[Rfam]
RNA sequence: AGGCUUGGUUUCCUGGGGGGUGGGCUCAGCUACUCCACUUCCCCUCAGCCAAGCCUACAAGAGAGGGGCCAGGCCUCCUCUCUCUUGGGAGAGGCAUUUGAGGAAGGAGCCUCACCUGGACUGGUCUGGCCUCACAUUU
Numbered sequence: 001a002g003g004c005u006u007g008g009u010u011u012c013c014u015g016g017g018g019g020g021u022g023g024g025c026u027c028a029g030c031u032a033c034u035c036c037a038c039u040u041c042c043c044c045u046c047a048g049c050c051a052a053g054c055c056u057a058c059a060a061g062a063g064a065g066g067g068g069c070c071a072g073g074c075c076u077c078c079u080c081u082c083u084c085u086u087g088g089g090a091g092a093g094g095c096a097u098u099u100g101a102g103g104a105a106g107g108a109g110c111c112u113c114a115c116c117u118g119g120a121c122u123g124g125u126c127u128g129g130c131c132u133c134a135c136a137u138u139u
Stems, first nucleotide, its partner, number of pairs: 002055006015043010065133005071127003078119002087112003
Rfam assigns this 139-nucleotide sequence from Castor canadensis to the family "Small Cajal body specific RNA 21". The family's consensus secondary structure was predicted with RNAalifold. It scores 135 bits against the family's covariance model. By type it is a small Cajal body RNA. Rfam describes the family as follows. scaRNAs are a specific class of small nuclear RNAs which localise to the Cajal bodies and guide the modification of RNA polymerase II transcribed spliceosomal RNAs U1, U2, U4, U5 and U12. ACA68 (SCARNA21) is a member of the H/ACA class of snoRNAs that guide the sites of modification of uridines to pseudouridines. Gene Ontology terms of the family: nucleolus, Cajal body and RNA processing.